[Rfam]
RNA sequence: AAGCCAGUCUGUUAAUCUGCUUACCUGAAUGUGUUUGUGCAGAAAUUUAGAAAAAGCUGGCAAUAGUAAUGCCAUGAUACGAGCCUUAAGGACAGUCAUGGUCAUUAAGGUCCCUGAAAAUGGCUACAACA
Dot-bracket structure: ..(((((........(((((..................))))).............))))).........((((........(((((((.(((.......))).))))))).........)))).......
Numbered sequence: 001a002a003g004c005c006a007g008u009c010u011g012u013u014a015a016u017c018u019g020c021u022u023a024c025c026u027g028a029a030u031g032u033g034u035u036u037g038u039g040c041a042g043a044a045a046u047u048u049a050g051a052a053a054a055a056g057c058u059g060g061c062a063a064u065a066g067u068a069a070u071g072c073c074a075u076g077a078u079a080c081g082a083g084c085c086u087u088a089a090g091g092a093c094a095g096u097c098a099u100g101g102u103c104a105u106u107a108a109g110g111u112c113c114c115u116g117a118a119a120a121u122g123g124c125u126a127c128a129a130c131a
Stems, first nucleotide, its partner, number of pairs: 003061005016043005071124004083111007091103003
About this RNA: Shown here is a 131-nucleotide sequence from Castor canadensis, a member of the family "Small nucleolar RNA SNORA33". Its family is annotated with nucleolus and RNA processing in the Gene Ontology. The source organism's lineage runs through Eukaryota, Opisthokonta, Theria, Boreoeutheria and Castor. The family has 28 seed sequences and 1,176 matches in Rfam 15.1.